Background
The family of this 112-nucleotide sequence from Streptococcus sp. X16XC17 is "PyrR binding site". Pairs were carried over by alignment from the consensus structure, which is taken from published work. A search with the family's covariance model found it, with a score of 56 bits. It is annotated as a cis-regulatory element.
RNA sequence: AAAUCCUUUAAUGCUGUCCAGAGAGACAGUCAAGGAGCAUGACUAGAAUGAGGGACAGAGUAUGUGCCCAUAUUUUUCGACGUCUCCUUGAAAAGGGAGAUGUUUUUUUCAU
Numbered sequence: 001a002a003a004u005c006c007u008u009u010a011a012u013g014c015u016g017u018c019c020a021g022a023g024a025g026a027c028a029g030u031c032a033a034g035g036a037g038c039a040u041g042a043c044u045a046g047a048a049u050g051a052g053g054g055a056c057a058g059a060g061u062a063u064g065u066g067c068c069c070a071u072a073u074u075u076u077u078c079g080a081c082g083u084c085u086c087c088u089u090g091a092a093a094a095g096g097g098a099g100a101u102g103u104u105u106u107u108u109u110c111a112u
Base pairs, nucleotide, nucleotide: 004036005035006034007033008032013030014029015028016027017026018025045076046075047074048073049072050071052069053068054067058063079104080103081102082101083100084099085098086097087096088095089094